[Rfam]
RNA: U7 small nuclear RNA
RNA sequence: GAGAAUGUGCUCUUUUAGUAUUUCUCCAGUAGGUUUCCUCAAGGAGAAAGCCUCC
Numbered sequence: 001g002a003g004a005a006u007g008u009g010c011u012c013u014u015u016u017a018g019u020a021u022u023u024c025u026c027c028a029g030u031a032g033g034u035u036u037c038c039u040c041a042a043g044g045a046g047a048a049a050g051c052c053u054c055c
Stems, first nucleotide, its partner, number of pairs: 032052005038046003
Dot-bracket structure: ...............................(((((.(((...))).)))))...